This 172-nucleotide RNA sequence from Tepidibacillus fermentans belongs to the Rfam family "Group II catalytic intron D1-D4-3". Pairs were carried over by alignment from the consensus structure. It scores 111 bits against the family's covariance model. The literature on the family includes a 2001 paper in Trends Genet by Bonen and Vogel, "The ins and outs of group II introns".
RNA sequence: UCCACCGUGAGGUGGAAUCUGAAGGAAGCCGAAGGCAAACUUCUGGUCUGACGAACAGAAAUCACAUCAGGCAUAUGUAGGCUGGGUAAGGUUGCAAAACAAACCGAAGCCCUAAACUAUCCGGAAGCCUACGGUGUAAAUAAUGAAUGUUACCAAAACAGGAGCGAAGUGU
Numbered sequence: 001u002c003c004a005c006c007g008u009g010a011g012g013u014g015g016a017a018u019c020u021g022a023a024g025g026a027a028g029c030c031g032a033a034g035g036c037a038a039a040c041u042u043c044u045g046g047u048c049u050g051a052c053g054a055a056c057a058g059a060a061a062u063c064a065c066a067u068c069a070g071g072c073a074u075a076u077g078u079a080g081g082c083u084g085g086g087u088a089a090g091g092u093u094g095c096a097a098a099a100c101a102a103a104c105c106g107a108a109g110c111c112c113u114a115a116a117c118u119a120u121c122c123g124g125a126a127g128c129c130u131a132c133g134g135u136g137u138a139a140a141u142a143a144u145g146a147a148u149g150u151u152a153c154c155a156a157a158a159c160a161g162g163a164g165c166g167a168a169g170u171g172u
Stems, first nucleotide, its partner, number of pairs: 001016006035170002040164006046151001048149001062146003066141001071137003076133007084112004090105004